[Rfam]
RNA sequence: AGCCUCCUGAUGCUUACCACAGGCUGUGCUCUUACACUGUAUAGAAAGAGGAGGCAGAGUAAACUCACCCCAUAAACACCUCAGGCCAGGAAAGCCCUGUGCAUUGUCUGUAUUGUGAGUGGGAGGACAUGG
Number, nucleotide and partner (000 for none) at each position: 001a000002g055003c054004c053005u052006c051007c050008u049009g000010a000011u000012g000013c000014u000015u000016a000017c000018c000019a000020c039021a038022g037023g000024c000025u000026g000027u036028g035029c000030u000031c000032u000033u000034a000035c028036a027037c022038u021039g020040u000041a000042u000043a000044g000045a000046a000047a000048g000049a008050g007051g006052a005053g004054g003055c002056a000057g000058a000059g000060u000061a000062a000063a000064c000065u000066c000067a000068c000069c123070c122071c121072a120073u119074a000075a000076a000077c000078a000079c000080c000081u000082c110083a109084g108085g000086c106087c000088a104089g000090g102091a000092a000093a000094g000095c000096c000097c000098u000099g000100u000101g000102c090103a000104u088105u000106g086107u000108c084109u083110g082111u000112a000113u000114u000115g000116u000117g000118a000119g073120u072121g071122g070123g069124a000125g000126g000127a000128c000129a000130u000131g000132g000

This 132-nucleotide RNA sequence from Muntiacus reevesi belongs to the Rfam family "Small nucleolar RNA SNORA51". Rfam links the family to the GO terms nucleolus and RNA processing. Rfam's curators write: ACA51 is a member of the H/ACA class of snoRNA that guide the sites of modification of uridines to pseudouridines.